[Rfam]
RNA sequence: GGCAGCAGUGCUGUAGCAGCACGUAAAUACUGGAGUUUAGAUUUUUAUAGGUAUUCUCCAGUAUUAUUUUGCUGCUCUAGUAAUGUUGCA
Numbered sequence: 001g002g003c004a005g006c007a008g009u010g011c012u013g014u015a016g017c018a019g020c021a022c023g024u025a026a027a028u029a030c031u032g033g034a035g036u037u038u039a040g041a042u043u044u045u046u047a048u049a050g051g052u053a054u055u056c057u058c059c060a061g062u063a064u065u066a067u068u069u070u071g072c073u074g075c076u077c078u079a080g081u082a083a084u085g086u087u088g089c090a
Base pairs, nucleotide, nucleotide: 002089003088004087005086006085013078015076016075017074018073019072020071021070023068026065027064028063029062030061031060032059033058034057035056
The record is a 90-nucleotide sequence from Leptobrachium leishanense, which matches "mir-15 microRNA precursor family" in Rfam. NCBI's taxonomy places the organism under Eukaryota, Chordata, Teleostomi, Batrachia, Leptobrachium. The family's consensus secondary structure was predicted with RNAalifold. This family represents the related mir-15a and mir-15b sequences. In humans miR-15a and miR-16 are clustered within 0.5 kb at 13q14. For this family Rfam cites "Identification of novel genes coding for small expressed RNAs" (Lagos-Quintana et al., Science, 2001). The match comes from Rfam's covariance-model search (68 bits).